Record summary
Shown here is a 79-nucleotide sequence, a member of the family "Proteo-phage-1 RNA". By type it is a small RNA. The base pairs follow the family's consensus structure, which is taken from published work.

[Rfam]
RNA sequence: CUGCAGCCAGGGCAGGCCCUAACAGGACAGCCUGGACACUGCUAGCCGGUAGUGUGGUGUCGGAAAAACACCGGCAGCC
Numbered sequence: 001c002u003g004c005a006g007c008c009a010g011g012g013c014a015g016g017c018c019c020u021a022a023c024a025g026g027a028c029a030g031c032c033u034g035g036a037c038a039c040u041g042c043u044a045g046c047c048g049g050u051a052g053u054g055u056g057g058u059g060u061c062g063g064a065a066a067a068a069c070a071c072c073g074g075c076a077g078c079c
Base pairs, nucleotide, nucleotide: 001015002014003013004012007035008034009033010032011031017026018025037059038058039057040056041055045075046074047073048072049071